[Rfam]
RNA sequence: ACUCUCUCAGCUCUGCAUGGUUGCACUUGUUUCCACGCGUGUGACUUUCGUAAUGGGGAGAGAGAGAAAGGAUCUCCUUGAGACCUCAGAUUGGCCUGCUGGUGGCCAGUCUUGCCUUGAGGGGUGCAACAGAU
Numbered sequence: 001a002c003u004c005u006c007u008c009a010g011c012u013c014u015g016c017a018u019g020g021u022u023g024c025a026c027u028u029g030u031u032u033c034c035a036c037g038c039g040u041g042u043g044a045c046u047u048u049c050g051u052a053a054u055g056g057g058g059a060g061a062g063a064g065a066g067a068a069a070g071g072a073u074c075u076c077c078u079u080g081a082g083a084c085c086u087c088a089g090a091u092u093g094g095c096c097u098g099c100u101g102g103u104g105g106c107c108a109g110u111c112u113u114g115c116c117u118u119g120a121g122g123g124g125u126g127c128a129a130c131a132g133a134u
Stems, first nucleotide, its partner, number of pairs: 002066007011058005019046008074124005080118003088112003092108005
This 134-nucleotide RNA from Vicugna pacos belongs to the Rfam family "Small nucleolar RNA SNORA64/SNORA10 family". The family's consensus secondary structure is taken from published work. Its Rfam clan is "SNORA64 clan". From the family's description: This family belongs to the H/ACA class of small nucleolar RNAs (snoRNAs) which act as guides in the the modification of uridines to pseudouridines. On this family, see Narayanan et al., EMBO J 1999: "Nucleolar localization signals of box H/ACA small nucleolar RNAs". The family has 9 seed sequences and 703 matches in Rfam 15.1.